[Rfam]
RNA sequence: GCCGAGCUUGGUAACAUGGGCUUGCAACUCAAGUGAGGGCAUUAAGGUGACUGAAGAUUGAUUCAGACUUAACAGGCAGGGUUUGCGAGUGCUAAUAUGCUGGUUAGCCUGGUCCAAGAAGUGAGUUGGGCCUUGUGGUCUAGCCGAAGGUUUAGAUCAUUUGGCUCCUAAAGUGGAGGGUAUUGCACCAAGAUGGCUUUACAGAGCAGCGAAAACCUCCCACUCUCCUCGGUGGAAGGAUAACGAGCUGGUGCAUUAUAGGCCCACUAUUGCCUUAGAAAGCUUGAAUCAAUUGGACGGUCACUUUU
Dot-bracket structure: ((((((((((......)))))))....(((....))))))...((((((((((...((((.(((((..((...((((((((((((...(((.((.....((((((.(.((..((((.((.(.((((.(((((..(((((((((.(....).)))))))))..)))))(....).(((((....(.(.(.....((......)).....).).)..))))).)))).).))..)))).))....).)))))))))))..))))))).....)))))...))...))))).))).)...)))))))))).
RNA: Plant signal recognition particle RNA
Organism: Protea cynaroides